The family of this 83-nucleotide RNA sequence from Paenibacillus zeisoli is "c-di-GMP-I riboswitch aptamer". Rfam describes the family as follows. GEMM was predicted in a large-scale screen for bacterial structured RNA regulatory elements. The match comes from Rfam's covariance-model search (77 bits). Taxonomically the source falls in Paenibacillus (Bacteria, Bacillota, Bacilli, Caryophanales).
RNA sequence: ACUUGAAAAAGGCAAACUUGCUGAAAGGCAAGGACGCAAAGCCACGGGUCUAAGGCAUUUCGCUAAGACAGCCGGUUACCAGC
Numbered sequence: 001a002c003u004u005g006a007a008a009a010a011g012g013c014a015a016a017c018u019u020g021c022u023g024a025a026a027g028g029c030a031a032g033g034a035c036g037c038a039a040a041g042c043c044a045c046g047g048g049u050c051u052a053a054g055g056c057a058u059u060u061c062g063c064u065a066a067g068a069c070a071g072c073c074g075g076u077u078a079c080c081a082g083c
Base pairs, nucleotide, nucleotide: 012037013036017032018031019030020029021028022027040077041076042075043074046073047072048069049068050067055063056062